[Rfam]
RNA: Archaeal large subunit ribosomal RNA, nucleotides 539 to 635
RNA sequence: GACGGGGCAUACAAGGUCCCCCGAAAAAUGACCCAGGCGCGAGCCUGCAGUAAGAAUCGGAGGAAGCCGAUGUUCCGUCGUACGUUUUGAAAAACGA
Numbered sequence: 001g002a003c004g005g006g007g008c009a010u011a012c013a014a015g016g017u018c019c020c021c022c023g024a025a026a027a028a029u030g031a032c033c034c035a036g037g038c039g040c041g042a043g044c045c046u047g048c049a050g051u052a053a054g055a056a057u058c059g060g061a062g063g064a065a066g067c068c069g070a071u072g073u074u075c076c077g078u079c080g081u082a083c084g085u086u087u088u089g090a091a092a093a094a095c096g097a
Stems, first nucleotide, its partner, number of pairs: 001079010015068002019062001021060004029053001034047005083096003